[Rfam]
RNA sequence: AUUUGGGGAAGGAAGGCUAAGAACGCGACAUCCUGUCGCAACGCCUUCAUGACCCACGUCCUGUGGG
Numbered sequence: 001a002u003u004u005g006g007g008g009a010a011g012g013a014a015g016g017c018u019a020a021g022a023a024c025g026c027g028a029c030a031u032c033c034u035g036u037c038g039c040a041a042c043g044c045c046u047u048c049a050u051g052a053c054c055c056a057c058g059u060c061c062u063g064u065g066g067g
Base pairs, nucleotide, nucleotide: 012048013047014046015045016044017043025039026038027037028036029035053067054066055065056064057063
The family of this 67-nucleotide sequence from Lentibacillus sp. JNUCC-1 is "Bacillaceae-1 RNA".
A search with the family's covariance model found it, with a score of 76 bits.
The source organism's lineage runs through Bacteria, Bacillati, Bacilli, Bacillaceae and Lentibacillus.
Rfam classes the family as a small RNA.
The family's consensus secondary structure is taken from published work.